[Rfam]
RNA sequence: AAGCCUGACCCGCCGAAUCCCCCACCCCCGGGGGAGCCGGGGACCCACACUUCUCCAUGAAGUCCCCGGGGUGAAUCCGAGUGCCACCGGCGCACCCGGUAGGGCUGCCUCCGGCCCGAACCCGUCAGCUAACCCGGUAGGCGGCCGAGGAGAAGAGGA
Numbered sequence: 001a002a003g004c005c006u007g008a009c010c011c012g013c014c015g016a017a018u019c020c021c022c023c024a025c026c027c028c029c030g031g032g033g034g035a036g037c038c039g040g041g042g043a044c045c046c047a048c049a050c051u052u053c054u055c056c057a058u059g060a061a062g063u064c065c066c067c068g069g070g071g072u073g074a075a076u077c078c079g080a081g082u083g084c085c086a087c088c089g090g091c092g093c094a095c096c097c098g099g100u101a102g103g104g105c106u107g108c109c110u111c112c113g114g115c116c117c118g119a120a121c122c123c124g125u126c127a128g129c130u131a132a133c134c135c136g137g138u139a140g141g142c143g144g145c146c147g148a149g150g151a152g153a154a155g156a157g158g159a
Base pairs, nucleotide, nucleotide: 011143012142013141014140018035019034020033021032022031023030036138037137038136039135040134041133046068069123070122071121077099078098079097102117103116104115105114
Shown here is a 159-nucleotide RNA from Streptosporangium becharense, a member of the family "c-di-AMP riboswitch aptamer (ydaO/yuaA leader)". Rfam links the family to the GO terms regulation of gene expression and cyclic-di-AMP binding. A search with the family's covariance model found it, with a score of 77 bits. Lineage of the source: Bacteria > Bacillati > Actinomycetota > Actinomycetes > Streptosporangium.